[Rfam]
The record is a 156-nucleotide sequence from Bradyrhizobium sp. BTAi1, which matches "Bradyrhizobiaceae sRNA BjrC80" in Rfam.

RNA sequence: GAGAUGGAGAGUCGCCGGCAUGUUGCCCCCGCGUCGGCGGCUCUUCCUGGGGGCGGGCAUAAGUCCCGCUCCCGCAAACCUUCCGGUAGGAACAACGCCCCCCUCCGUCGGAAGGAACUCGGGCGGUGAAGUCCCCCAGCUUCACCGCCCACUUUC
Numbered sequence: 001g002a003g004a005u006g007g008a009g010a011g012u013c014g015c016c017g018g019c020a021u022g023u024u025g026c027c028c029c030c031g032c033g034u035c036g037g038c039g040g041c042u043c044u045u046c047c048u049g050g051g052g053g054c055g056g057g058c059a060u061a062a063g064u065c066c067c068g069c070u071c072c073c074g075c076a077a078a079c080c081u082u083c084c085g086g087u088a089g090g091a092a093c094a095a096c097g098c099c100c101c102c103c104u105c106c107g108u109c110g111g112a113a114g115g116a117a118c119u120c121g122g123g124c125g126g127u128g129a130a131g132u133c134c135c136c137c138a139g140c141u142u143c144a145c146c147g148c149c150c151a152c153u154u155u156c
Stems, first nucleotide, its partner, number of pairs: 009043007017035003049073009059064001074120001077119001079115002083111004089106003121150012